[Rfam]
RNA sequence: GUGGGUGAAAUCAAUGUAAGAUCAACACUUUGGAACUGGAACCCAUAAAGUGGUGGGACAUAUAUUGAUUUUACCCAA
Numbered sequence: 001g002u003g004g005g006u007g008a009a010a011u012c013a014a015u016g017u018a019a020g021a022u023c024a025a026c027a028c029u030u031u032g033g034a035a036c037u038g039g040a041a042c043c044c045a046u047a048a049a050g051u052g053g054u055g056g057g058a059c060a061u062a063u064a065u066u067g068a069u070u071u072u073a074c075c076c077a078a
Stems, first nucleotide, its partner, number of pairs: 002077017023056001025054001026052007
Dot-bracket structure: .(((((((((((((((((....(.((((((((.............))))))).).)....))))))))))))))))).
Source information:
The record is a 78-nucleotide sequence from Medicago truncatula, which matches "MIR5269 microRNA precursor family" in Rfam. The match comes from Rfam's covariance-model search (66 bits).